[Rfam]
RNA sequence: UUGGAUUCCGUGGGAGAGCGAGGCAGCCUUAUCCGGCCCGCCUCCGCCGAAGGCGCAAACUCCCAUAAUCGCUCAGGCACAAGUACCACGGAACACAU
Numbered sequence: 001u002u003g004g005a006u007u008c009c010g011u012g013g014g015a016g017a018g019c020g021a022g023g024c025a026g027c028c029u030u031a032u033c034c035g036g037c038c039c040g041c042c043u044c045c046g047c048c049g050a051a052g053g054c055g056c057a058a059a060c061u062c063c064c065a066u067a068a069u070c071g072c073u074c075a076g077g078c079a080c081a082a083g084u085a086c087c088a089c090g091g092a093a094c095a096c097a098u
Base pairs, nucleotide, nucleotide: 006093007092008091009090010089011088012087013086020044021043022042023041046078047077048076049074050073053072054071055070059066
Background: Rfam assigns this 98-nucleotide RNA from Comamonas kerstersii to the family "Glycine riboswitch aptamer". The source organism's lineage runs through Bacteria, Pseudomonadati, Pseudomonadota, Betaproteobacteria and Comamonas. Gene Ontology term of the family: glycine biosynthetic process. A search with the family's covariance model found it, with a score of 63 bits. The base pairs follow the family's consensus structure.